Shown here is an 88-nucleotide sequence from Propionispora sp. 2/2-37, a member of the family "c-di-GMP-I riboswitch aptamer".
It scores 84 bits against the family's covariance model.
RNA sequence: AUACAUAUUUGGCAAACUUAUCGAAAGGUAAGGACGCAAAGCUAUGGAUCUAAAGGCAAAAAAUGCCUAUGAUUGCCAGGUUGCCGUU
Numbered sequence: 001a002u003a004c005a006u007a008u009u010u011g012g013c014a015a016a017c018u019u020a021u022c023g024a025a026a027g028g029u030a031a032g033g034a035c036g037c038a039a040a041g042c043u044a045u046g047g048a049u050c051u052a053a054a055g056g057c058a059a060a061a062a063a064u065g066c067c068u069a070u071g072a073u074u075g076c077c078a079g080g081u082u083g084c085c086g087u088u
Stems, first nucleotide, its partner, number of pairs: 012037002017032006040082004045078003048073003055067004

Source information
Pairs were carried over by alignment from the consensus structure, which is taken from published work. Its Rfam clan is "c-di-GMP_I riboswitch clan".